[Rfam]
RNA sequence: GUUUCUCGGCCGGUCGGGAUCAGCCGCAAUGUUUUAUUUGAAUGAAAUAUUGCACUUGUCCCGGCCUGUCGAGAGCAC
Numbered sequence: 001g002u003u004u005c006u007c008g009g010c011c012g013g014u015c016g017g018g019a020u021c022a023g024c025c026g027c028a029a030u031g032u033u034u035u036a037u038u039u040g041a042a043u044g045a046a047a048u049a050u051u052g053c054a055c056u057u058g059u060c061c062c063g064g065c066c067u068g069u070c071g072a073g074a075g076c077a078c
Stems, first nucleotide, its partner, number of pairs: 004074003009069002012066003016062005022056002026053009
Rfam assigns this 78-nucleotide RNA from Ameiurus melas to the family "mir-92 microRNA precursor family".
Rfam's curators write: This family represents the microRNA precursor mir-92. Human miR-92 has two predicted hairpin precursor sequences: mir-92-1 on chromosome 13 and mir-92-2 on chromosome X. miR-92 has also been cloned from mouse embryonic stem cells. The mature sequence is excised from the 3' arm of the hairpin.
The family has 23 seed sequences and 1,347 matches in Rfam 15.1.
The base pairs follow the family's consensus structure, which was predicted with PFOLD.